RNA sequence: AAAGUCUCCUAUGCAACAGCAAUGGAUUGGUUCAUAGCCGUUUGCUUUGCCUUC
Numbered sequence: 001a002a003a004g005u006c007u008c009c010u011a012u013g014c015a016a017c018a019g020c021a022a023u024g025g026a027u028u029g030g031u032u033c034a035u036a037g038c039c040g041u042u043u044g045c046u047u048u049g050c051c052u053u054c
Stems, first nucleotide, its partner, number of pairs: 002053002008049001011046001013045002015042003019038002022035005
Notes: The record is a 54-nucleotide sequence from Kryptolebias marmoratus, which matches "Editing element of GABA-3 exon 9" in Rfam. It scores 64 bits against the family's covariance model. For this family Rfam cites "Editing modifies the GABA(A) receptor subunit alpha3" (Ohlson et al., RNA, 2007). The family's consensus secondary structure is taken from published work. It is annotated as a cis-regulatory element.